[Rfam]
RNA sequence: UAGUGUUACAGCUCUUUUAGAAUUUGUCUAACAGGUUUUCUGGUCUUUAUCGGAAAAUUCCC
Numbered sequence: 001u002a003g004u005g006u007u008a009c010a011g012c013u014c015u016u017u018u019a020g021a022a023u024u025u026g027u028c029u030a031a032c033a034g035g036u037u038u039u040c041u042g043g044u045c046u047u048u049a050u051c052g053g054a055a056a057a058u059u060c061c062c
Stems, first nucleotide, its partner, number of pairs: 034061002037056008
The family of this 62-nucleotide RNA sequence from Pan troglodytes is "U7 small nuclear RNA". The family's consensus secondary structure was predicted with PFOLD. Lineage of the source: Eukaryota > Deuterostomia > Amniota > Boreoeutheria > Pan.